RNA sequence: GAGUUAUGAUGUAUUUAAGUCCUAUUCCAUUGCUGAAAUACAGUGUGGAACACGAUGAACUGAACUC
Numbered sequence: 001g002a003g004u005u006a007u008g009a010u011g012u013a014u015u016u017a018a019g020u021c022c023u024a025u026u027c028c029a030u031u032g033c034u035g036a037a038a039u040a041c042a043g044u045g046u047g048g049a050a051c052a053c054g055a056u057g058a059a060c061u062g063a064a065c066u067c
Stems, first nucleotide, its partner, number of pairs: 001067004
Shown here is a 67-nucleotide RNA from Ornithorhynchus anatinus, a member of the family "Small nucleolar RNA SNORD98". Rfam 15.1 lists 571 matches to the family in 543 species. It is annotated as a C/D-box small nucleolar RNA. Its family is annotated with RNA processing and nucleolus in the Gene Ontology. For this family Rfam cites "Purified box C/D snoRNPs are able to reproduce site-specific 2'-O-methylation of target RNA in vitro" (Galardi et al., Mol Cell Biol, 2002). The source organism's lineage runs through Eukaryota, Euteleostomi, Sarcopterygii, Ornithorhynchidae and Ornithorhynchus.